[Rfam]
The record is a 299-nucleotide RNA from Aphidius gifuensis, which matches "Metazoan signal recognition particle RNA" in Rfam. It scores 225 bits against the family's covariance model. Taxonomically the source falls in Aphidius (Eukaryota, Opisthokonta, Insecta, Apocrita). A reference for the family is Regalia et al. (2002), "Prediction of signal recognition particle RNA genes", Nucleic Acids Res. The signal recognition particle (SRP) is a universally conserved ribonucleoprotein. It is involved in the co-translational targeting of proteins to membranes. The eukaryotic SRP consists of a 300-nucleotide 7S RNA and six proteins: SRPs 72, 68, 54, 19, 14, and 9. Its family is annotated with signal recognition particle, endoplasmic reticulum targeting and SRP-dependent cotranslational protein targeting to membrane, signal sequence recognition in the Gene Ontology. The family's RNA type in Rfam is non-coding RNA gene.
Nucleotides: 299
Stems, first nucleotide, its partner, number of pairs: 001042003004021005026039003044297004049292003056286005064276007076269008086259002090255005096249001100248003103244005108236002112233004117227002120224006127164003131160003135156009167171001174217005185208003192201003
Number, partner (000 for none) and nucleotide at each position: 001042g002041c003040u004021g005020g006019g007018a008017g009000c010000g011000u012000g013000g014000c015000g016000u017008c018007u019006c020005c021004u022000g023000u024000a025000a026039u027038c028037c029000g030000g031000c032000u033000a034000c035000c036000c037028g038027g039026a040003a041002g042001c043000u044297a045296g046295u047294u048000a049292u050291u051290g052000u053000g054000g055000a056286g057285g058284a059283u060282c061000u062000g063000a064276g065275g066274u067273c068272g069271g070270g071000g072000g073000u074000u075000a076269c077268u078267c079266c080265g081264g082263g083262u084000u085000u086259g087258u088000g089000g090255u091254c092253c093252a094251c095000g096249u097000u098000g099000a100248c101247u102246g103244g104243a105242c106241g107240u108236c109235c110000g111000c112233a113232c114231u115230a116000a117227g118226c119000u120224c121223g122222c123221c124220a125219u126000c127164a128163a129162u130000a131160u132159g133158g134000g135156c136155a137154c138153c139152c140151u141150g142149g143148a144000g145000g146000a147000g148143u149142c150141c151140g152139g153138g154137g155136u156135g157000g158133c159132c160131a161000g162129g163128u164127u165000a166000g167171c168000u169000a170000a171167g172000g173000a174217g175216g176215g177214g178213c179000g180000a181000a182000c183000c184000g185208g186207g187206c188000c189000a190000g191000a192201g193200g194199g195000g196000a197000a198000a199194c200193c201192c202000c203000g204000c205000a206187g207186c208185c209000a210000a211000a212000a213178g214177u215176u216175c217174c218000c219125g220124u221123g222122g223121u224120g225000u226118g227117c228000a229000g230115u231114a232113g233112u234000a235109g236108g237000a238000u239000c240107g241106c242105g243104u244103c245000u246102c247101a248100g249096g250000a251094g252093u253092g254091g255090a256000a257000a258087a259086c260000u261000u262083a263082c264081u265080c266079g267078g268077a269076g270070c271069c272068u273067g274066g275065u276064c277000a278000a279000u280000a281000u282060g283059a284058u285057u286056c287000g288000a289000c290051c291050a292049a293000c294047a295046a296045c297044u298000u299000u